[Rfam]
RNA: Ribosomal protein L20 leader
Organism: Vagococcus zengguangii
RNA sequence: GAAAUCAAGCAGAAGCUCCCGCUUCUCGCCUUAGUGAUUAUUAUUGCUGGGCUAGAUAAUUCUUUUGAUAGGUAACUAUCUAUAUGGAAUAAAUGGGGGUUCUUUGCGAAAAGAACUCUUUUUUUCUGCCAU
Numbered sequence: 001g002a003a004a005u006c007a008a009g010c011a012g013a014a015g016c017u018c019c020c021g022c023u024u025c026u027c028g029c030c031u032u033a034g035u036g037a038u039u040a041u042u043a044u045u046g047c048u049g050g051g052c053u054a055g056a057u058a059a060u061u062c063u064u065u066u067g068a069u070a071g072g073u074a075a076c077u078a079u080c081u082a083u084a085u086g087g088a089a090u091a092a093a094u095g096g097g098g099g100u101u102c103u104u105u106g107c108g109a110a111a112a113g114a115a116c117u118c119u120u121u122u123u124u125u126c127u128g129c130c131a132u
Stems, first nucleotide, its partner, number of pairs: 011026006028052003034047005096119010